[Rfam]
RNA sequence: UUGUUUGCGGACGCAGCAUCAUUAAGAUUCACAUGCCAUUAAUGCACGGUGGAAGCAUUGAUUUGCUGAAUUUUCUUCCCGAAGUUGGAGAUGAGAAUCUUGAUGAUGCUGCAUCGGCGGAUAG
Numbered sequence: 001u002u003g004u005u006u007g008c009g010g011a012c013g014c015a016g017c018a019u020c021a022u023u024a025a026g027a028u029u030c031a032c033a034u035g036c037c038a039u040u041a042a043u044g045c046a047c048g049g050u051g052g053a054a055g056c057a058u059u060g061a062u063u064u065g066c067u068g069a070a071u072u073u074u075c076u077u078c079c080c081g082a083a084g085u086u087g088g089a090g091a092u093g094a095g096a097a098u099c100u101u102g103a104u105g106a107u108g109c110u111g112c113a114u115c116g117g118c119g120g121a122u123a124g
Base pairs, nucleotide, nucleotide: 010115011114013112014111015110016109017108018107019106020105021104022103023102024101025100026099027098028097029096030095032093033092
The record is a 124-nucleotide sequence from Morella rubra, which matches "mir-172 microRNA precursor family" in Rfam. Rfam links the family to the GO terms RISC complex and miRNA-mediated post-transcriptional gene silencing. The family has 11 seed sequences and 2,076 matches in Rfam 15.1. mir-172 has been experimentally verified in Arabidopsis thaliana. This family is thought to target mRNAs coding for APETALA2-like transcription factors. The mature sequence is excised from the 3' arm of the hairpin.